The family of this 62-nucleotide RNA from Pongo abelii is "U7 small nuclear RNA". Rfam 15.1 lists 10,439 matches to the family in 569 species. The literature on the family includes a 1987 paper in Science by Mowry and Steitz, "Identification of the human U7 snRNP as one of several factors involved in the 3' end maturation of histone premessenger RNA's".
RNA sequence: UAAGGUUACGGCUCUUUUAGAAUUUGUCUGACAGGUUUUCCUGUCUUCACUGGAACUCCCCA
Number, nucleotide and partner (000 for none) at each position: 001u000002a000003a000004g000005g000006u000007u000008a000009c000010g000011g000012c000013u000014c000015u000016u000017u000018u000019a000020g000021a000022a000023u000024u000025u000026g000027u000028c000029u000030g000031a000032c000033a000034g059035g058036u000037u000038u055039u054040c053041c052042u000043g050044u049045c000046u000047u000048c000049a044050c043051u000052g041053g040054a039055a038056c000057u000058c035059c034060c000061c000062a000